The family of this 86-nucleotide RNA sequence from Panicum miliaceum is "Small nucleolar RNA Z102/R77". The family's consensus secondary structure was predicted with PFOLD. Clan: SNORD44 clan. By type it is a C/D-box small nucleolar RNA. On this family, see Chen et al., Nucleic Acids Res 2003: "The high diversity of snoRNAs in plants: identification and comparative study of 120 snoRNA genes from Oryza sativa". The source organism's lineage runs through Eukaryota, Euphyllophyta, Magnoliopsida, Petrosaviidae and Panicum sect. Panicum.
[Rfam]
RNA sequence: AGAUGAGGUGAUGUCGAAAUUGUUUCCCUAUUGGUUUGAUUGGCCGUCAUGAUGGCUCAAACUGUAUUAGCUCUAUCUGAUCGUCU
Numbered sequence: 001a002g003a004u005g006a007g008g009u010g011a012u013g014u015c016g017a018a019a020u021u022g023u024u025u026c027c028c029u030a031u032u033g034g035u036u037u038g039a040u041u042g043g044c045c046g047u048c049a050u051g052a053u054g055g056c057u058c059a060a061a062c063u064g065u066a067u068u069a070g071c072u073c074u075a076u077c078u079g080a081u082c083g084u085c086u
Base pairs, nucleotide, nucleotide: 002085003084004083005082038058043056044055045054